[Rfam]
RNA sequence: AGAAUUUCGUCAAAGCCUACCUCCUCCCAGGCGAUGACGAAUACGGUCAGCCCUCCCCUCCUCCCGAGUGCUGACCACUCUAAUGGCACCCGCCGAACCUCCUCCCUCGGCGGGUGCUGUUA
Number, nucleotide and partner (000 for none) at each position: 001a000002g000003a000004a000005u000006u000007u040008c039009g038010u000011c036012a035013a000014a000015g032016c031017c030018u000019a000020c000021c000022u000023c000024c000025u000026c000027c000028c000029a000030g017031g016032c015033g000034a000035u012036g011037a000038c009039g008040a007041a000042u000043a000044c000045g076046g075047u074048c073049a072050g071051c070052c000053c068054u067055c000056c000057c000058c000059u000060c000061c000062u000063c000064c000065c000066g000067a054068g053069u000070g051071c050072u049073g048074a047075c046076c045077a000078c000079u000080c000081u000082a000083a000084u000085g000086g117087c116088a115089c114090c113091c112092g111093c110094c109095g108096a107097a000098c000099c000100u000101c000102c000103u000104c000105c000106c000107u096108c095109g094110g093111c092112g091113g090114g089115u088116g087117c086118u000119g000120u000121u000122a000
The record is a 122-nucleotide RNA sequence from Neomesorhizobium albiziae, which matches "Alphaproteobacterial ar14" in Rfam.
The base pairs follow the family's consensus structure.
Rfam links the family to the GO term biological process involved in symbiotic interaction.
About the family: Smr14C2 was renamed NfeR1 (Nodule Formation Efficiency RNA) highly expressed in salt stress and during the symbiotic interaction on legume roots.